This 69-nucleotide sequence from Salvelinus namaycush belongs to the Rfam family "miR-430 microRNA precursor family". Pairs were carried over by alignment from the consensus structure, which was predicted with RNAalifold. Lineage of the source: Eukaryota > Metazoa > Actinopterygii > Teleostei > Salvelinus. A reference for the family is Giraldez et al. (2005), "MicroRNAs regulate brain morphogenesis in zebrafish", Science. Its Rfam clan is "mir-290 clan".
[Rfam]
RNA sequence: AUAGCUACCCUAACAAAAGCAUUGACUGGGUUUUUUUUGCAGUAAGUGCUCUUUGUUGAGGUAUCUGUU
Numbered sequence: 001a002u003a004g005c006u007a008c009c010c011u012a013a014c015a016a017a018a019g020c021a022u023u024g025a026c027u028g029g030g031u032u033u034u035u036u037u038u039g040c041a042g043u044a045a046g047u048g049c050u051c052u053u054u055g056u057u058g059a060g061g062u063a064u065c066u067g068u069u
Stems, first nucleotide, its partner, number of pairs: 004065001006063004011058001013056005018050006025043003